Shown here is a 51-nucleotide RNA from Ensete ventricosum, a member of the family "Plastid-ccsA-ndhD-1 3UTR RNA". The match comes from Rfam's covariance-model search (50 bits).
RNA sequence: GAGUUUUUGAGAACCGUUUGAAUCAUUCCUUAUUCAAACGGUUCUCAAAAA
Number, nucleotide and partner (000 for none) at each position: 001g000002a000003g000004u000005u000006u000007u048008u047009g046010a045011g044012a043013a042014c041015c040016g039017u038018u037019u036020g035021a034022a033023u032024c000025a000026u000027u000028c000029c000030u000031u000032a023033u022034u021035c020036a019037a018038a017039c016040g015041g014042u013043u012044c011045u010046c009047a008048a007049a000050a000051a000
Rfam describes the family as follows. Plastid-ccsA-ndhD-1 is a non-coding RNA (ncRNA) recognised in plastids. It was found in the three prime untranslated region (3UTR) of ccsA and ndhD genes, its 3UTR location suggests a role in transcript maturation.